[Rfam]
RNA sequence: UCGGCGGCGACGACUGGCGAGGGUGGGUCACCACCGGGAAGUCCGCAGUCGGGGCAUCGCCCGCCUGGGUGCCCCGC
Number, nucleotide and partner (000 for none) at each position: 001u000002c000003g050004g049005c048006g000007g046008c045009g043010a042011c041012g000013a000014c038015u037016g065017g064018c063019g062020a000021g000022g000023g034024u033025g032026g031027g000028u000029c000030a000031c026032c025033a024034c023035c000036g000037g015038g014039a000040a000041g011042u010043c009044c000045g008046c007047a000048g005049u004050c003051g000052g000053g000054g072055c071056a070057u069058c068059g000060c000061c000062c019063g018064c017065c016066u000067g000068g058069g057070u056071g055072c054073c000074c000075c000076g000077c000
RNA: ZMP/ZTP riboswitch aptamer (pfl RNA motif)